Bacterial RNase P class A: a 392-nucleotide sequence from Legionella waltersii. The base pairs follow the family's consensus structure, which is taken from published work. It is annotated as a ribozyme. NCBI's taxonomy places the organism under Bacteria, Pseudomonadota, Gammaproteobacteria, Legionellales, Legionella.
[Rfam]
RNA sequence: AGAGUUGGUCAGGCAAUCGCUCUUUGUCUUAGGAUAAGGGGAGGAAAGUCCGGGCUCCAUAGGGUAGAGUGCCAGGUAACUCCUGGGAGGUGUGAACCUACGGAAAGUGCCACAGAAAAUAUACCGCUAUUUGCGUAGUCAUGCUGACUUGUUCAGAAUGAUCAUGCAAAAGUAAGGGUGAAAUGGUGCGGUAAGAGCGCACCGCGCGAUUGGUAACAAUCGUGGCAGGGAAAACCCCGCUCGGAGCAAGACCAAAUAGGGAUCCACGUGACCAAUGGUCAUAGCGUAUGACCCAUACGGGAUUCGGGUAGGUCGCUUGAGACAUACGGUGACGUAUGUCCUAGAUGAAUGAUUGUCCUCGACAGAACCCGGCUUAUCGACCAACUCCUUUA
Numbered sequence: 001a002g003a004g005u006u007g008g009u010c011a012g013g014c015a016a017u018c019g020c021u022c023u024u025u026g027u028c029u030u031a032g033g034a035u036a037a038g039g040g041g042a043g044g045a046a047a048g049u050c051c052g053g054g055c056u057c058c059a060u061a062g063g064g065u066a067g068a069g070u071g072c073c074a075g076g077u078a079a080c081u082c083c084u085g086g087g088a089g090g091u092g093u094g095a096a097c098c099u100a101c102g103g104a105a106a107g108u109g110c111c112a113c114a115g116a117a118a119a120u121a122u123a124c125c126g127c128u129a130u131u132u133g134c135g136u137a138g139u140c141a142u143g144c145u146g147a148c149u150u151g152u153u154c155a156g157a158a159u160g161a162u163c164a165u166g167c168a169a170a171a172g173u174a175a176g177g178g179u180g181a182a183a184u185g186g187u188g189c190g191g192u193a194a195g196a197g198c199g200c201a202c203c204g205c206g207c208g209a210u211u212g213g214u215a216a217c218a219a220u221c222g223u224g225g226c227a228g229g230g231a232a233a234a235c236c237c238c239g240c241u242c243g244g245a246g247c248a249a250g251a252c253c254a255a256a257u258a259g260g261g262a263u264c265c266a267c268g269u270g271a272c273c274a275a276u277g278g279u280c281a282u283a284g285c286g287u288a289u290g291a292c293c294c295a296u297a298c299g300g301g302a303u304u305c306g307g308g309u310a311g312g313u314c315g316c317u318u319g320a321g322a323c324a325u326a327c328g329g330u331g332a333c334g335u336a337u338g339u340c341c342u343a344g345a346u347g348a349a350u351g352a353u354u355g356u357c358c359u360c361g362a363c364a365g366a367a368c369c370c371g372g373c374u375u376a377u378c379g380a381c382c383a384a385c386u387c388c389u390u391u392a
Stems, first nucleotide, its partner, number of pairs: 002387009011377001012357007020041009046375003050372005055246004062294004067242005072086005087101001088099004102237002107235002110230002124177002126173003130170006185203006204226001205224008250314004260305006285299005321340008